[Rfam]
RNA sequence: AAACAGCCCCCUAUGUUUUAAUUCUUUAGCAGUUUUGGUCCCCCCAAGACAAAUAAAAAAUUUGACACGUGGCACCUCACAUAGGGUGUCACGUCAGCGUUGACCGAGUCAACACUGGACUGAGGGUUCAAAACUGCCAAAGAAUCAAAACAUAGGGGGCUGUUU
Numbered sequence: 001a002a003a004c005a006g007c008c009c010c011c012u013a014u015g016u017u018u019u020a021a022u023u024c025u026u027u028a029g030c031a032g033u034u035u036u037g038g039u040c041c042c043c044c045c046a047a048g049a050c051a052a053a054u055a056a057a058a059a060a061u062u063u064g065a066c067a068c069g070u071g072g073c074a075c076c077u078c079a080c081a082u083a084g085g086g087u088g089u090c091a092c093g094u095c096a097g098c099g100u101u102g103a104c105c106g107a108g109u110c111a112a113c114a115c116u117g118g119a120c121u122g123a124g125g126g127u128u129c130a131a132a133a134c135u136g137c138c139a140a141a142g143a144a145u146c147a148a149a150a151c152a153u154a155g156g157g158g159g160c161u162g163u164u165u
Stems, first nucleotide, its partner, number of pairs: 001165002004162005012154008021145007029137010040126002043124001045122002067094002070091007
RNA: MIR2619 microRNA precursor family
Organism: Medicago truncatula